[Rfam]
RNA: mir-9256 microRNA precursor family
RNA sequence: CUAUCUACUGAGUGGCCAGAUUAUUAUGAUCUCUGAACUCAUAAUAAUCUGGCCACUCAGUGUAGAU
Numbered sequence: 001c002u003a004u005c006u007a008c009u010g011a012g013u014g015g016c017c018a019g020a021u022u023a024u025u026a027u028g029a030u031c032u033c034u035g036a037a038c039u040c041a042u043a044a045u046a047a048u049c050u051g052g053c054c055a056c057u058c059a060g061u062g063u064a065g066a067u
Base pairs, nucleotide, nucleotide: 004064006062007061008060009059010058011057012056013055014054015053016052017051019049020048021047022046023045024044025043026042027041028040
Dot-bracket structure: ...(.((((((((((((.((((((((((...........)))))))))).)))))))))))).)...